[Rfam]
RNA: c-di-GMP-I-GGC riboswitch aptamer
Organism: Aneurinibacillus danicus
RNA sequence: AAUGAAAAAGGCAAACUUAUCGAAAGGUAAGGACGCAAAACUAUAGGGGCUUUUAUUUUUAAGAUAUGCCAGCCAGUUACCAGGA
Numbered sequence: 001a002a003u004g005a006a007a008a009a010g011g012c013a014a015a016c017u018u019a020u021c022g023a024a025a026g027g028u029a030a031g032g033a034c035g036c037a038a039a040a041c042u043a044u045a046g047g048g049g050c051u052u053u054u055a056u057u058u059u060u061a062a063g064a065u066a067u068g069c070c071a072g073c074c075a076g077u078u079a080c081c082a083g084g085a
Base pairs, nucleotide, nucleotide: 003082004081011036012035016031017030018029019028020027021026034072039078040077041076042075046074047073048070049069050068